[Rfam]
Nucleotides: 414
Stems, first nucleotide, its partner, number of pairs: 001410010011399001012363007020039008044397003048394005053245004060299004065241005070084005085099001086097004100236002105234002107230003122175002124171005130165001132163001183201006203225001204223008249320004279311006291303004327346008
Number, partner (000 for none) and nucleotide at each position: 001410c002409g003408a004407g005406u006405c007404g008403g009402c010401a011399g012363g013362g014361c015360g016359g017358u018357c019000g020039c021038g022037g023036c024035g025034g026033g027032u028000g029000a030000g031000a032027a033026c034025u035024c036023g037022u038021c039020g040000a041000g042000g043000a044397a045396a046395g047000u048394c049393c050392g051391g052390a053245c054244u055243c056242c057000g058000a059000a060299g061298g062297g063296c064000a065241g066240g067239g068238u069237g070084g071083u072082u073081g074080c075000u076000a077000a078000c079000g080074g081073c082072a083071a084070c085099c086097c087096g088095g089094g090000g091000c092000g093000a094089c095088c096087c097086g098000c099085g100236g101235g102000a103000c104000a105234g106233u107230g108229c109228c110000a111000c112000a113000g114000a115000a116000a117000g118000c119000a120000a121000a122175c123174c124171g125170c126169c127168u128167g129000a130165c131000a132163g133000c134000u135000c136000c137000g138000u139000u140000g141000g142000u143000g144000c145000c146000u147000c148000c149000g150000g151000c152000a153000c154000c155000g156000g157000c158000g159000g160000g161000c162000g163132c164000g165130g166000c167128c168127a169126g170125g171124u172000a173000a174123g175122g176000g177000u178000g179000a180000a181000a182000c183201g184200g185199u186198g187197g188196u189000g190000u191000a192000a193000g194000a195000g196188a197187c198186c199185a200184c201183c202000a203225g204223c205222a206221c207220c208219c209218c210217g211216g212000g213000u214000g215000a216211c217210c218209g219208g220207g221206g222205u223204g224000g225203c226000u227000a228109g229108g230107u231000a232000a233106a234105c235101c236100c237069c238068a239067c240066c241065c242056g243055g244054a245053g246000c247000a248000a249320g250319g251318u252317c253000a254000a255000g256000a257000g258000g259000g260000a261000g262000u263000c264000c265000u266000c267000c268000g269000g270000g271000a272000c273000u274000c275000c276000u277000g278000c279311g280310c281309a282308g283307g284306c285000g286000a287000u288000c289000g290000a291303g292302g293301g294300c295000u296063g297062c298061c299060c300294g301293c302292c303291c304000g305000a306284g307283c308282c309281u310280g311279c312000g313000g314000g315000u316000a317252g318251g319250c320249c321000g322000c323000u324000a325000g326000a327346g328345c329344c330343u331342g332341c333340c334339g335000g336000c337000g338000a339334c340333g341332g342331c343330a344329g345328g346327c347000c348000c349000a350000g351000a352000u353000g354000g355000a356000u357018g358017a359016c360015c361014g362013c363012c364000c365000c366000c367000c368000g369000g370000c371000c372000g373000c374000g375000a376000g377000g378000c379000c380000g381000g382000g383000g384000a385000c386000a387000g388000g389000a390052u391051c392050c393049g394048g395046c396045u397044u398000a399011c400000a401010u402009g403008c404007c405006g406005g407004c408003u409002c410001g411000u412000c413000c414000g
The family of this 414-nucleotide sequence from Actinophytocola algeriensis is "Bacterial RNase P class A". The match comes from Rfam's covariance-model search (282 bits). Rfam classes the family as a ribozyme.